[Rfam]
RNA sequence: UAUCAAUAAUUAAAUAGAUUCGAUAUAUCGCCGACAUAUAUGGGUUGGCAGUUUCUACCGGAUGACCGUUAAUUAUCCGACUAUCGAAAUGAACAUAGAGUAU
Numbered sequence: 001u002a003u004c005a006a007u008a009a010u011u012a013a014a015u016a017g018a019u020u021c022g023a024u025a026u027a028u029c030g031c032c033g034a035c036a037u038a039u040a041u042g043g044g045u046u047g048g049c050a051g052u053u054u055c056u057a058c059c060g061g062a063u064g065a066c067c068g069u070u071a072a073u074u075a076u077c078c079g080a081c082u083a084u085c086g087a088a089a090u091g092a093a094c095a096u097a098g099a100g101u102a103u
Base pairs, nucleotide, nucleotide: 019088020087021086022085023084024083025082030049031048032047033046034045035044059079060078061077062076063075064074065073
The record is a 103-nucleotide sequence from Clostridium manihotivorum, which matches "Purine riboswitch aptamer" in Rfam. The base pairs follow the family's consensus structure, which is taken from published work. Its Rfam clan is "Purine riboswitches". It scores 70 bits against the family's covariance model.